[Rfam]
Shown here is an 86-nucleotide sequence from Bos taurus, a member of the family "Small nucleolar RNA SNORD71". By type it is an H/ACA-box small nucleolar RNA. Taxonomically the source falls in Bos (Eukaryota, Teleostomi, Sarcopterygii, Bovidae). The base pairs follow the family's consensus structure, which was predicted with RNAalifold. snoRNA HBII-239 belongs to the family of C/D snoRNAs.It is the human orthologue of the mouse MBII-239 described and is predicted to guide 2'O-ribose methylation of 5.8S rRNA on residue U14. Its family is annotated with nucleolus and RNA processing in the Gene Ontology.
Nucleotides: 086
Stems, first nucleotide, its partner, number of pairs: 002085007009075002012033004017028001035062005043054003
Number, partner (000 for none) and nucleotide at each position: 001000u002085g003084u004083g005082u006081g007080c008079u009075g010074g011000a012033g013032g014031a015030u016000g017028a018000a019000g020000a021000u022000a023000c024000g025000a026000a027000g028017u029000g030015a031014u032013c033012c034000a035062u036061c037060g038059g039058c040000u041000g042000a043054g044053u045052g046000u047000u048000c049000u050000g051000u052045c053044a054043c055000u056000a057000u058039g059038c060037u061036g062035a063000g064000a065000c066000u067000c068000g069000a070000a071000u072000g073000g074010c075009u076000g077000a078000c079008a080007g081006c082005a083004c084003a085002c086000a